RNA: mir-1789 microRNA precursor family
Organism: Gallus gallus
RNA sequence: CCAUGCACCCACAAGCACAACCAAGCCCAAAUGAAAGGUUUGGGUGUACUUGCGGAUGAAUGG
Numbered sequence: 001c002c003a004u005g006c007a008c009c010c011a012c013a014a015g016c017a018c019a020a021c022c023a024a025g026c027c028c029a030a031a032u033g034a035a036a037g038g039u040u041u042g043g044g045u046g047u048a049c050u051u052g053c054g055g056a057u058g059a060a061u062g063g
Stems, first nucleotide, its partner, number of pairs: 001063003006058002009055002012052004017047003021043007